[Rfam]
RNA sequence: CGCUCUCUCUCAACCACCGACCUGUGCCCGGGCUCCCUUCCACCUCCUUGAGGGUUCUUCUUUCUUGUGGGGUGUGUUUGGUUGCAGCUCGAGGCAGUUCGUCCGCCAUACAUGGAGCCAUCGCAGCGCCGCCAUGAUGUCAAUGUCCGGUCGACAGGUCGCAGAGAAAGUUGGUGCGCGAUUGCGGAAGCCUGAGCUCGCCGUGAGGUUGAGCUCGGUGGAGGCGCGCGUUGCCUGGGCACCUGAUUCCUAAUCCCUUAUGCUAGGCCGUCGGCCAUUGAUGCUUGGGAAAAACCCAGUUCUGCCUACAUCU
Numbered sequence: 001c002g003c004u005c006u007c008u009c010u011c012a013a014c015c016a017c018c019g020a021c022c023u024g025u026g027c028c029c030g031g032g033c034u035c036c037c038u039u040c041c042a043c044c045u046c047c048u049u050g051a052g053g054g055u056u057c058u059u060c061u062u063u064c065u066u067g068u069g070g071g072g073u074g075u076g077u078u079u080g081g082u083u084g085c086a087g088c089u090c091g092a093g094g095c096a097g098u099u100c101g102u103c104c105g106c107c108a109u110a111c112a113u114g115g116a117g118c119c120a121u122c123g124c125a126g127c128g129c130c131g132c133c134a135u136g137a138u139g140u141c142a143a144u145g146u147c148c149g150g151u152c153g154a155c156a157g158g159u160c161g162c163a164g165a166g167a168a169a170g171u172u173g174g175u176g177c178g179c180g181a182u183u184g185c186g187g188a189a190g191c192c193u194g195a196g197c198u199c200g201c202c203g204u205g206a207g208g209u210u211g212a213g214c215u216c217g218g219u220g221g222a223g224g225c226g227c228g229c230g231u232u233g234c235c236u237g238g239g240c241a242c243c244u245g246a247u248u249c250c251u252a253a254u255c256c257c258u259u260a261u262g263c264u265a266g267g268c269c270g271u272c273g274g275c276c277a278u279u280g281a282u283g284c285u286u287g288g289g290a291a292a293a294a295c296c297c298a299g300u301u302c303u304g305c306c307u308a309c310a311u312c313u
Stems, first nucleotide, its partner, number of pairs: 018161008026095003029091006035084001036081002040076001041074002043071003047067001050064002052061003103153001105151003113142003117138001119136001172233002176231005190219003194216006200209002238306003241301001243299003254290004262284002266276004